Small nucleolar RNA SNORD27: a 70-nucleotide RNA sequence from Pogona vitticeps. The match comes from Rfam's covariance-model search (52 bits). Rfam links the family to the GO terms RNA processing and nucleolus.
[Rfam]
RNA sequence: GUUCAAUGAUGUAUAUAAAUUGACAAGCAUAUAUCUGAUGUCUGGUGAUGUCAGCUUUUUGUCUGAGAAC
Numbered sequence: 001g002u003u004c005a006a007u008g009a010u011g012u013a014u015a016u017a018a019a020u021u022g023a024c025a026a027g028c029a030u031a032u033a034u035c036u037g038a039u040g041u042c043u044g045g046u047g048a049u050g051u052c053a054g055c056u057u058u059u060u061g062u063c064u065g066a067g068a069a070c
Stems, first nucleotide, its partner, number of pairs: 001070004